Shown here is a 166-nucleotide RNA from Sapajus apella, a member of the family "U1 spliceosomal RNA". Clan: U1 clan. NCBI's taxonomy places the organism under Eukaryota, Deuterostomia, Chordata, Teleostomi, Sapajus.
RNA sequence: AUUCUUAUAUGGCAAGGGUAGUGUCAUGAUCAUGAAAGUGGUUUUCCCAGGGCCAAGGCUCAUCUAUUGCACUCCAGAUGUGCCGGUCCCCUGAGAUUUCACCAAAUGUGGGAAACUUGAUUGCAUAAUUUAUGGUGGUGAUGAACUGUGUUUGCUCUUUCUCCAG
Numbered sequence: 001a002u003u004c005u006u007a008u009a010u011g012g013c014a015a016g017g018g019u020a021g022u023g024u025c026a027u028g029a030u031c032a033u034g035a036a037a038g039u040g041g042u043u044u045u046c047c048c049a050g051g052g053c054c055a056a057g058g059c060u061c062a063u064c065u066a067u068u069g070c071a072c073u074c075c076a077g078a079u080g081u082g083c084c085g086g087u088c089c090c091c092u093g094a095g096a097u098u099u100c101a102c103c104a105a106a107u108g109u110g111g112g113a114a115a116c117u118u119g120a121u122u123g124c125a126u127a128a129u130u131u132a133u134g135g136u137g138g139u140g141a142u143g144a145a146c147u148g149u150g151u152u153u154g155c156u157c158u159u160u161c162u163c164c165a166g
Stems, first nucleotide, its partner, number of pairs: 012124004016048003020044002023042005049092004055087001057084003061080005095118002097115001098113002102110001139165002143161001145160001148157001150155001